Source information: Rfam assigns this 183-nucleotide RNA from Gracilibacillus thailandensis to the family "Lysine riboswitch aptamer". Gene Ontology term of the family: lysine biosynthetic process. Pairs were carried over by alignment from the consensus structure, which is taken from published work. Lineage of the source: Bacteria > Bacillati > Bacilli > Bacillaceae > Gracilibacillus.
[Rfam]
RNA sequence: AGUGAGAAUAGAGGUGCAAAAACCAUUAGUACAUAGUGGGAGGCUGGUGUUGCCUGAGAAAGCUAUCGAAAGGGGAAUUUGCCGAAGUAAAAUAAGUACGCAUCAACUUAUUUUACUGGUCCUUCAUUGAACAAAUGCAGGGCUGUCAUAUAGUGCCACGCUAUAUGGAGGGCUAUCUCACGC
Numbered sequence: 001a002g003u004g005a006g007a008a009u010a011g012a013g014g015u016g017c018a019a020a021a022a023c024c025a026u027u028a029g030u031a032c033a034u035a036g037u038g039g040g041a042g043g044c045u046g047g048u049g050u051u052g053c054c055u056g057a058g059a060a061a062g063c064u065a066u067c068g069a070a071a072g073g074g075g076a077a078u079u080u081g082c083c084g085a086a087g088u089a090a091a092a093u094a095a096g097u098a099c100g101c102a103u104c105a106a107c108u109u110a111u112u113u114u115a116c117u118g119g120u121c122c123u124u125c126a127u128u129g130a131a132c133a134a135a136u137g138c139a140g141g142g143c144u145g146u147c148a149u150a151u152a153g154u155g156c157c158a159c160g161c162u163a164u165a166u167g168g169a170g171g172g173c174u175a176u177c178u179c180a181c182g183c
Base pairs, nucleotide, nucleotide: 006178008176009175010174011173016082017081018080019079020078023075024074033066034065035064036063037062086117087116088115089114090113091112092111093110094109095108096107097106118144119143120142121141122140123139125137126136127135128134146168147167148166149165150164151163152162